[Rfam]
RNA sequence: UUUACUCUAAUUUGUAUGAAGUUGAAACAGCUUCCUUGGUUUGCAGCUAGAGGCGUUGUUCCAAUUCCAUACAAAUUUGAGUUA
Number, nucleotide and partner (000 for none) at each position: 001u000002u000003u000004a000005c000006u000007c000008u000009a077010a076011u075012u074013u073014g072015u071016a070017u000018g068019a000020a066021g065022u064023u063024g062025a000026a060027a059028c058029a057030g000031c000032u000033u000034c052035c000036u050037u000038g000039g047040u046041u000042u000043g000044c000045a000046g040047c039048u000049a000050g036051a000052g034053g000054c000055g000056u000057u029058g028059u027060u026061c000062c024063a023064a022065u021066u020067c000068c018069a000070u016071a015072c014073a013074a012075a011076u010077u009078u000079g000080a000081g000082u000083u000084a000

Shown here is an 84-nucleotide RNA sequence from Bombyx mori, a member of the family "mir-2807 microRNA precursor family".
Rfam links the family to the GO terms miRNA-mediated post-transcriptional gene silencing and RISC complex.
The family has 8 seed sequences and 5,120 matches in Rfam 15.1.
Lineage of the source: Eukaryota > Insecta > Heteroneura > Obtectomera > Bombyx.
It scores 71 bits against the family's covariance model.